[Rfam]
RNA: c-di-GMP-I riboswitch aptamer
RNA sequence: AGCCUUAGAGGGCAAAUCUGGCGAAAGCCAGAGACGCAAAGCCAAGGGUCUAAGUUGCAUUAAGCGAUAAGAUAGCCUGGUUGCAAAA
Dot-bracket structure: ...........((...((((((....))))))...))..((((.((((((....((((.....))))...)))..)))))))......